[Rfam]
Small nucleolar RNA SNORD70: a 90-nucleotide RNA sequence from Xenopus tropicalis. For this family Rfam cites "RNomics: an experimental approach that identifies 201 candidates for novel, small, non-messenger RNAs in mouse" (Huttenhofer et al., EMBO J, 2001). The organism belongs to Silurana, within Eukaryota. The family's RNA type in Rfam is C/D-box small nucleolar RNA. Pairs were carried over by alignment from the consensus structure. snoRNA HBII-234 belongs to the C/D family of snoRNAs.
RNA sequence: CUAAAUGUCACCUAUGAUGGAUAAAUGUUGAUCUGAAACAAAAUGAUUUUAGAUUCAACUCUUCGUCACUACCACUGAGGUGAUGACAGG
Numbered sequence: 001c002u003a004a005a006u007g008u009c010a011c012c013u014a015u016g017a018u019g020g021a022u023a024a025a026u027g028u029u030g031a032u033c034u035g036a037a038a039c040a041a042a043a044u045g046a047u048u049u050u051a052g053a054u055u056c057a058a059c060u061c062u063u064c065g066u067c068a069c070u071a072c073c074a075c076u077g078a079g080g081u082g083a084u085g086a087c088a089g090g
Stems, first nucleotide, its partner, number of pairs: 001090002006085007